Plastid-psbA-1 3UTR RNA: a 113-nucleotide RNA from Capsicum baccatum.
The literature on the family includes a 2023 paper in Plant Commun by Richter et al., "Retrograde signaling in plants: A critical review focusing on the GUN pathway and beyond".
The organism belongs to Capsicum, within Eukaryota.

RNA sequence: UCGAAGCUCCAUCUACAAAUAGAUAAGAUCCCACUCUAGUGUAUAAGAGGUUUUGAAAAGAAAGGAGCAAUAAUCAUUUUCUUGUUUUAUCAAGAGGGUGCUAUUGCUUCUUU
Numbered sequence: 001u002c003g004a005a006g007c008u009c010c011a012u013c014u015a016c017a018a019a020u021a022g023a024u025a026a027g028a029u030c031c032c033a034c035u036c037u038a039g040u041g042u043a044u045a046a047g048a049g050g051u052u053u054u055g056a057a058a059a060g061a062a063a064g065g066a067g068c069a070a071u072a073a074u075c076a077u078u079u080u081c082u083u084g085u086u087u088u089a090u091c092a093a094g095a096g097g098g099u100g101c102u103a104u105u106g107c108u109u110c111u112u113u
Base pairs, nucleotide, nucleotide: 008023009022011020012019061113062112063111064110065109066108067107068106069105070104071103072102075100076099077098079096080095081094082093083092
It is annotated as a cis-regulatory element.